[Rfam]
RNA sequence: UUGUGCCUGGUGUGGUUAUAAAGCAAUGAGACUGAUCGUCAUGUGUCGAGUGUGGGAUCCGUCUCAGUUACUUUAUAGCCAGGCCGGCACCUCG
Numbered sequence: 001u002u003g004u005g006c007c008u009g010g011u012g013u014g015g016u017u018a019u020a021a022a023g024c025a026a027u028g029a030g031a032c033u034g035a036u037c038g039u040c041a042u043g044u045g046u047c048g049a050g051u052g053u054g055g056g057a058u059c060c061g062u063c064u065c066a067g068u069u070a071c072u073u074u075a076u077a078g079c080c081a082g083g084c085c086g087g088c089a090c091c092u093c094g
Base pairs, nucleotide, nucleotide: 006087007086009085011083013081014080016078017077018076019075020074021073022072023071027066028065029064030063031062032061034059035058036057037056039055040054041053042052043051